[Rfam]
The family of this 83-nucleotide RNA sequence from Caenimonas sedimenti is "SucA RNA motif". For this family Rfam cites "Identification of 22 candidate structured RNAs in bacteria using the CMfinder comparative genomics pipeline" (Weinberg et al., Nucleic Acids Res, 2007). By type it is a cis-regulatory element.
RNA sequence: UCGCAUCCGCCAACCGGUUCAGCCGUGCCGCGGAAGGUUUCCACAACCAGCUUGUGUCUCCUCCAGGGAGACGGAAAGUAGCG
Numbered sequence: 001u002c003g004c005a006u007c008c009g010c011c012a013a014c015c016g017g018u019u020c021a022g023c024c025g026u027g028c029c030g031c032g033g034a035a036g037g038u039u040u041c042c043a044c045a046a047c048c049a050g051c052u053u054g055u056g057u058c059u060c061c062u063c064c065a066g067g068g069a070g071a072c073g074g075a076a077a078g079u080a081g082c083g
Stems, first nucleotide, its partner, number of pairs: 002083003006034005015025004036048004050079003056072007
Rfam links the family to the GO term regulation of translation.